[Rfam]
RNA sequence: ACUAAUAACGAUAAUAAGGGCGGGAUUGCCCGCCCUACUGAUUGCUGACCAAAGGCCCGGACAGACAGACGCGCUAAGGCCGUUCCCCGAAGCGCGGCAACAGGGGGCCAUUCAUCAAUCUUCAGGGUAGCGCUCGCUACCCUUUUUUACCGGAGUUUU
Numbered sequence: 001a002c003u004a005a006u007a008a009c010g011a012u013a014a015u016a017a018g019g020g021c022g023g024g025a026u027u028g029c030c031c032g033c034c035c036u037a038c039u040g041a042u043u044g045c046u047g048a049c050c051a052a053a054g055g056c057c058c059g060g061a062c063a064g065a066c067a068g069a070c071g072c073g074c075u076a077a078g079g080c081c082g083u084u085c086c087c088c089g090a091a092g093c094g095c096g097g098c099a100a101c102a103g104g105g106g107g108c109c110a111u112u113c114a115u116c117a118a119u120c121u122u123c124a125g126g127g128u129a130g131c132g133c134u135c136g137c138u139a140c141c142c143u144u145u146u147u148u149a150c151c152g153g154a155g156u157u158u159u
Stems, first nucleotide, its partner, number of pairs: 013157002018035004022030002036126001038125003041119004047113002060101001071095005078088002
RNA: sroC RNA